[Rfam]
RNA sequence: GAGGCAAUAGUUAUCAAUAUUGUACAUAAUUAAAUUUGUUCAUAUUUUAAAAAUGCUUGUAUCAAAAAUUGAACAAGACAUGUAG
Numbered sequence: 001g002a003g004g005c006a007a008u009a010g011u012u013a014u015c016a017a018u019a020u021u022g023u024a025c026a027u028a029a030u031u032a033a034a035u036u037u038g039u040u041c042a043u044a045u046u047u048u049a050a051a052a053a054u055g056c057u058u059g060u061a062u063c064a065a066a067a068a069u070u071g072a073a074c075a076a077g078a079c080a081u082g083u084a085g
Base pairs, nucleotide, nucleotide: 001027003025004023005022006021007020008019010018011017053081054080055079056077057076058075059074060073062072063071064070

pan motif: an 85-nucleotide RNA.
The base pairs follow the family's consensus structure, which is taken from published work.
The family's RNA type in Rfam is cis-regulatory element.